[Rfam]
RNA: MIR168 microRNA precursor family
Organism: Camellia sinensis
RNA sequence: GUUACGGCGGACUCUAAUUCGCUCGGUGCACGUCGGGAACUACUUCGCUGGUGGCGGCAAUUGAUUCUGAUUGAUUCGGGGGCGAAUCGGGUCCUGCCUUGCAUCAACUAAAUCAGAGACCGCCGUGAAC
Number, nucleotide and partner (000 for none) at each position: 001g000002u000003u000004a000005c000006g000007g000008c000009g000010g000011a000012c000013u117014c116015u000016a000017a113018u112019u111020c000021g000022c000023u107024c000025g105026g104027u103028g102029c101030a100031c000032g098033u000034c096035g095036g094037g093038a092039a000040c090041u089042a000043c000044u000045u000046c000047g000048c000049u000050g000051g000052u000053g000054g000055c000056g000057g000058c000059a000060a000061u000062u000063g000064a000065u000066u000067c000068u000069g000070a000071u000072u000073g000074a000075u000076u000077c000078g000079g000080g000081g000082g000083c000084g000085a000086a000087u000088c000089g041090g040091g000092u038093c037094c036095u035096g034097c000098c032099u000100u030101g029102c028103a027104u026105c025106a000107a023108c000109u000110a000111a019112a018113u017114c000115a000116g014117a013118g000119a000120c000121c000122g000123c000124c000125g000126u000127g000128a000129a000130c000